[Rfam]
RNA sequence: CCGGCUGUUCAGCCAGCCGAACCGACCGGAACAUGCGUGGGGGGUAACUCCCAGGUGUGAAGCUUCCGGAAACGUACCCGCCGUGAACGGUAGGCCAAACCGCGAGGGGAGGCCGAAUCUGCCAGCAACAGGCAGUGAGGGGC
Number, nucleotide and partner (000 for none) at each position: 001c000002c019003g018004g017005c016006u015007g014008u000009u000010c000011a000012g000013c000014c007015a006016g005017c004018c003019g002020a000021a000022c000023c000024g000025a000026c000027c068028g067029g066030a065031a064032c059033a058034u057035g056036c055037g000038u053039g052040g051041g050042g049043g048044g000045u000046a000047a000048c043049u042050c041051c040052c039053a038054g000055g036056u035057g034058u033059g032060a000061a000062g000063c000064u031065u030066c029067c028068g027069g000070a000071a000072a000073c000074g000075u000076a000077c000078c000079c000080g091081c090082c089083g088084u000085g000086a000087a000088c083089g082090g081091u080092a000093g114094g113095c112096c111097a000098a000099a000100c107101c106102g000103c000104g000105a000106g101107g100108g000109g000110a000111g096112g095113c094114c093115g000116a000117a000118u000119c135120u134121g133122c132123c131124a000125g000126c000127a000128a000129c000130a000131g123132g122133c121134a120135g119136u000137g000138a000139g000140g000141g000142g000143c000
RNA: Group II catalytic intron D1-D4-7